[Rfam]
Nucleotides: 077
Base pairs, nucleotide, nucleotide: 001077002076003075004074009069010068011067012066013065014064015063016062018060019059020058021057022056024055025054026053027052029050030049031048032047033046
Number, partner (000 for none) and nucleotide at each position: 001077g002076a003075u004074a005000g006000u007000g008000c009069u010068g011067c012066u013065u014064u015063g016062g017000c018060a019059a020058u021057u022056u023000u024055a025054g026053c027052u028000g029050u030049a031048u032047g033046a034000u035000u036000g037000a038000u039000u040000u041000g042000a043000a044000a045000u046033u047032c048031a049030u050029a051000a052027a053026g054025c055024u056022a057021g058020a059019u060018u061000a062016c063015c064014a065013a066012a067011g068010c069009a070000a071000a072000a073000a074004u075003g076002u077001c
Rfam assigns this 77-nucleotide sequence from Acanthoscelides obtectus to the family "mir-9/mir-79 microRNA precursor family". Its family is annotated with miRNA-mediated post-transcriptional gene silencing and RISC complex in the Gene Ontology. The literature on the family includes a 2001 paper in Science by Lagos-Quintana et al., "Identification of novel genes coding for small expressed RNAs".